This 61-nucleotide RNA from Parasporobacterium paucivorans belongs to the Rfam family "Streptococcus sRNA SpF59 (ldcC RNA)".
Lineage of the source: Bacteria > Bacillati > Bacillota > Lachnospiraceae > Parasporobacterium paucivorans.
The match comes from Rfam's covariance-model search (55 bits).
RNA sequence: UGACCAUCCGUUGCUUUUGCCAUCGGAUUAUGGCCAUACGGACAGCCCGGUCAAAAGCCGC
Dot-bracket structure: ((((((((((.............)))))....................)))))........